[Rfam]
RNA sequence: AGAGUGGACUAGGUCGAGGGGUUAGGCCCCCCUCCUCGCCCGCACUACGGUCUUGAGCGGGGACCAAACUCGGGGGCGUCCGGUCUGCCGGACGCAGGCCCCGUGAGCUAACGUCGAAGCCUCGUCCAACGGGGACAGCGGUCCACACGGCUGCGCCUGCAGGGGCGUUCGCCUGUGGUUAGACGAGGGCACUCCGCCAGGCACGGAAGUGAGCAGCGGACCCUCGUACACCUGUCGCUCGUCGGAUCGCGGGGUGGAGGAGGCAAACGGGACUACCUGCGCCCGAACGCCGGGCAAUCUCGCUGUCCAUCU
Numbered sequence: 001a002g003a004g005u006g007g008a009c010u011a012g013g014u015c016g017a018g019g020g021g022u023u024a025g026g027c028c029c030c031c032c033u034c035c036u037c038g039c040c041c042g043c044a045c046u047a048c049g050g051u052c053u054u055g056a057g058c059g060g061g062g063a064c065c066a067a068a069c070u071c072g073g074g075g076g077c078g079u080c081c082g083g084u085c086u087g088c089c090g091g092a093c094g095c096a097g098g099c100c101c102c103g104u105g106a107g108c109u110a111a112c113g114u115c116g117a118a119g120c121c122u123c124g125u126c127c128a129a130c131g132g133g134g135a136c137a138g139c140g141g142u143c144c145a146c147a148c149g150g151c152u153g154c155g156c157c158u159g160c161a162g163g164g165g166c167g168u169u170c171g172c173c174u175g176u177g178g179u180u181a182g183a184c185g186a187g188g189g190c191a192c193u194c195c196g197c198c199a200g201g202c203a204c205g206g207a208a209g210u211g212a213g214c215a216g217c218g219g220a221c222c223c224u225c226g227u228a229c230a231c232c233u234g235u236c237g238c239u240c241g242u243c244g245g246a247u248c249g250c251g252g253g254g255u256g257g258a259g260g261a262g263g264c265a266a267a268c269g270g271g272a273c274u275a276c277c278u279g280c281g282c283c284c285g286a287a288c289g290c291c292g293g294g295c296a297a298u299c300u301c302g303c304u305g306u307c308c309a310u311c312u
Base pairs, nucleotide, nucleotide: 001312002311003310005309006308007307008306009305012065013064014063015062016034017033018032019031020030021029039061040060041059042058043057045055071302072301073300074299075298078295079294080293081292082290089285090284091283093281094280095279096278097277098276100271101270102269103268104267107264108263109262112259114257119255120254121253122252123251124250125249126245127244129242130241131240132239133238134236135235136234137233138232140229141180143178144177145176146175147174149172153168154167155166156165157164158163183227184226185225186224187223188222189221193220194219195218196217197216202211203210204209
Shown here is a 312-nucleotide sequence from Halomicrobium mukohataei, a member of the family "Archaeal signal recognition particle RNA". It is annotated as a non-coding RNA gene. Taxonomically the source falls in Halomicrobium mukohataei (Archaea, Halobacteriales, Haloarculaceae, Halomicrobium). Its Rfam clan is "SRP clan". Rfam links the family to the GO terms SRP-dependent cotranslational protein targeting to membrane, signal sequence recognition and signal recognition particle, plasma membrane targeting.